RNA sequence: GCCUCGUGCCUGAAAGGGCGACGGCGCUGAGCCGGAGCGAGAAGUCAGCAGAGGCCGUAGUAGCUGCCGGUUGGGGGCGAAGGGU
Numbered sequence: 001g002c003c004u005c006g007u008g009c010c011u012g013a014a015a016g017g018g019c020g021a022c023g024g025c026g027c028u029g030a031g032c033c034g035g036a037g038c039g040a041g042a043a044g045u046c047a048g049c050a051g052a053g054g055c056c057g058u059a060g061u062a063g064c065u066g067c068c069g070g071u072u073g074g075g076g077g078c079g080a081a082g083g084g085u
Stems, first nucleotide, its partner, number of pairs: 001027002004023001007020005045052002054085003063078003067074002
This 85-nucleotide RNA from Trinickia terrae belongs to the Rfam family "Group II catalytic intron D1-D4-1".
The organism belongs to Trinickia, within Bacteria.
Rfam 15.1 lists 2,508 matches to the family in 1,144 species.
A search with the family's covariance model found it, with a score of 42 bits.